RNA sequence: AUCCUGUUUGUCAGAGGGUGAUGUGAAUGGCCUCAACGCCGCGAUCACACACCUGGAAAUGAGCAUUGCCCGUUUCCGCCCCUGACCACGGAUGUACUGGCAGGGGCGUCGAAACGGGAUACGAAAGGUCGGGCUUGCCCGGCCUUUUUGUUU
Numbered sequence: 001a002u003c004c005u006g007u008u009u010g011u012c013a014g015a016g017g018g019u020g021a022u023g024u025g026a027a028u029g030g031c032c033u034c035a036a037c038g039c040c041g042c043g044a045u046c047a048c049a050c051a052c053c054u055g056g057a058a059a060u061g062a063g064c065a066u067u068g069c070c071c072g073u074u075u076c077c078g079c080c081c082c083u084g085a086c087c088a089c090g091g092a093u094g095u096a097c098u099g100g101c102a103g104g105g106g107c108g109u110c111g112a113a114a115c116g117g118g119a120u121a122c123g124a125a126a127g128g129u130c131g132g133g134c135u136u137g138c139c140c141g142g143c144c145u146u147u148u149u150g151u152u153u
Stems, first nucleotide, its partner, number of pairs: 004063002007059003016054005069118006077108004083102002086100003121151002123148010
Shown here is a 153-nucleotide RNA sequence from Paenirhizobium daejeonense, a member of the family "Alphaproteobacterial sRNA ar35".
On this family, see del Val et al., RNA Biol 2012: "A survey of sRNA families in alpha-proteobacteria".
A search with the family's covariance model found it, with a score of 59 bits.
The family has 13 seed sequences and 266 matches in Rfam 15.1.
The base pairs follow the family's consensus structure.
Rfam classes the family as a small RNA.